[Rfam]
RNA sequence: AGUUGUGGUGACUUGCUUUCUGGCACAUUCGGUAAGUUUUCAAAGGAACCUAACUCUGCCACAUGUAUAGAAGUGGCCAAGGCUAGAUGACAAAGAGAUCCCUCUCAAGCCUUUCCUGCAUCAGAGACUGGCUCCCACAUGC
Numbered sequence: 001a002g003u004u005g006u007g008g009u010g011a012c013u014u015g016c017u018u019u020c021u022g023g024c025a026c027a028u029u030c031g032g033u034a035a036g037u038u039u040u041c042a043a044a045g046g047a048a049c050c051u052a053a054c055u056c057u058g059c060c061a062c063a064u065g066u067a068u069a070g071a072a073g074u075g076g077c078c079a080a081g082g083c084u085a086g087a088u089g090a091c092a093a094a095g096a097g098a099u100c101c102c103u104c105u106c107a108a109g110c111c112u113u114u115c116c117u118g119c120a121u122c123a124g125a126g127a128c129u130g131g132c133u134c135c136c137a138c139a140u141g142c
Stems, first nucleotide, its partner, number of pairs: 005062006022050002026046001028044002031041001070135001072133002074130001075084003102126004
Small nucleolar RNA SNORA12: a 142-nucleotide sequence from Carlito syrichta. Gene Ontology terms of the family: RNA processing and nucleolus. U108 belongs to the H/ACA family of snoRNAs. The sequence is predicted to guide the pseudouridylation of the U372 residue in the 28S rRNA subunit. However it has not been reported as a pseudouridylation site. The organism belongs to Carlito, within Eukaryota.